[Rfam]
RNA sequence: AGCCUCCCUAUCCCUUUCCCAUCAGAUCUGAAUACCGAUCUUAUGGUCAAAAAGGAGGGAAAUUAAAAUUUAAGUUGGCCCUAGUAUCUUUGCUGGGACAAAUCCUGCACUGAACUGGGCUGGCUUAAAACAAUU
Numbered sequence: 001a002g003c004c005u006c007c008c009u010a011u012c013c014c015u016u017u018c019c020c021a022u023c024a025g026a027u028c029u030g031a032a033u034a035c036c037g038a039u040c041u042u043a044u045g046g047u048c049a050a051a052a053a054g055g056a057g058g059g060a061a062a063u064u065a066a067a068a069u070u071u072a073a074g075u076u077g078g079c080c081c082u083a084g085u086a087u088c089u090u091u092g093c094u095g096g097g098a099c100a101a102a103u104c105c106u107g108c109a110c111u112g113a114a115c116u117g118g119g120c121u122g123g124c125u126u127a128a129a130a131c132a133a134u135u
Base pairs, nucleotide, nucleotide: 003058004057005056006055007054019046020045021044022043025040026039027038028037075123076122077121078120079119080118081117090113091112
RNA: Small nucleolar RNA SNORA61
Organism: Podarcis muralis